[Rfam]
RNA sequence: ACUUUUUACUGGUUUUUGAGGCUGAAGAACUCAUAAAUUUAGUGUUGACAUCAGCUUCAUCUUGCAUAUUAUGAGAUUGGAGUUAAAUGACAGCACAACAUUC
Number, nucleotide and partner (000 for none) at each position: 001a000002c000003u000004u000005u000006u000007u000008a000009c000010u000011g000012g000013u000014u000015u000016u000017u000018g000019a000020g000021g000022c000023u000024g000025a000026a000027g000028a000029a000030c000031u000032c000033a000034u000035a000036a000037a000038u000039u000040u000041a000042g096043u095044g094045u093046u092047g091048a000049c000050a000051u000052c000053a084054g083055c082056u081057u080058c079059a000060u076061c075062u074063u073064g000065c000066a000067u000068a000069u000070u000071a000072u000073g063074a062075g061076a060077u000078u000079g058080g057081a056082g055083u054084u053085a000086a000087a000088u000089g000090a000091c047092a046093g045094c044095a043096c042097a000098a000099c000100a000101u000102u000103c000
This 103-nucleotide sequence from Apostasia shenzhenica belongs to the Rfam family "Small nucleolar RNA snoR97".
The literature on the family includes a 2002 paper in Curr Biol by Marker et al., "Experimental RNomics: identification of 140 candidates for small non-messenger RNAs in the plant Arabidopsis thaliana".
The source organism's lineage runs through Eukaryota, Euphyllophyta, Liliopsida, Orchidaceae and Apostasia.
Gene Ontology terms of the family: RNA processing and nucleolus.
Pairs were carried over by alignment from the consensus structure, which was predicted with WAR.
The family's RNA type in Rfam is H/ACA-box small nucleolar RNA.